[Rfam]
A member of the RNA family "SAH (S-adenosyl-L-homocysteine) riboswitch aptamer" from Azoarcus indigens, 99 nucleotides long. It scores 46 bits against the family's covariance model. Pairs were carried over by alignment from the consensus structure, which is taken from published work.

RNA sequence: UCUUCCGAGGAGCGCUGCGAGGCCUCGACCGCAUUCCCGCGGGCGACCCCAGGCUCGGAACCCGCCGCCCGGCGGGCGUUUCAACGGCGCUCACCCAGG
Numbered sequence: 001u002c003u004u005c006c007g008a009g010g011a012g013c014g015c016u017g018c019g020a021g022g023c024c025u026c027g028a029c030c031g032c033a034u035u036c037c038c039g040c041g042g043g044c045g046a047c048c049c050c051a052g053g054c055u056c057g058g059a060a061c062c063c064g065c066c067g068c069c070c071g072g073c074g075g076g077c078g079u080u081u082c083a084a085c086g087g088c089g090c091u092c093a094c095c096c097a098g099g
Base pairs, nucleotide, nucleotide: 003060004059005058006057007056008055021048022047024045026043